Shown here is a 184-nucleotide RNA from Hordeum vulgare, a member of the family "Small nucleolar RNA Z112". The base pairs follow the family's consensus structure, which was predicted with PFOLD. Clan: SNORD49 clan. Rfam classes the family as a C/D-box small nucleolar RNA. Lineage of the source: Eukaryota > Magnoliopsida > Mesangiospermae > Liliopsida > Hordeum vulgare.
RNA sequence: GUCUCGGUGAAGAGCUCUCGGCCAUAGGAAGUGCCGUAUGACACUGUAAACAGCAGCUGCUUCUCUGCUGCUGCAAGUAGUCGUCCUCUUAUCUUAACCUUUGUGGUUUCGUCUGGGACGGAAUACCCAUUUGCACCAGCUUGAUUCAGCUGUGUGCGUGAUUUUAAACGGGUCUCUGAGGGGC
Numbered sequence: 001g002u003c004u005c006g007g008u009g010a011a012g013a014g015c016u017c018u019c020g021g022c023c024a025u026a027g028g029a030a031g032u033g034c035c036g037u038a039u040g041a042c043a044c045u046g047u048a049a050a051c052a053g054c055a056g057c058u059g060c061u062u063c064u065c066u067g068c069u070g071c072u073g074c075a076a077g078u079a080g081u082c083g084u085c086c087u088c089u090u091a092u093c094u095u096a097a098c099c100u101u102u103g104u105g106g107u108u109u110c111g112u113c114u115g116g117g118a119c120g121g122a123a124u125a126c127c128c129a130u131u132u133g134c135a136c137c138a139g140c141u142u143g144a145u146u147c148a149g150c151u152g153u154g155u156g157c158g159u160g161a162u163u164u165u166a167a168a169c170g171g172g173u174c175u176c177u178g179a180g181g182g183g184c
Stems, first nucleotide, its partner, number of pairs: 001184005070136001072135007081121006091112002096108004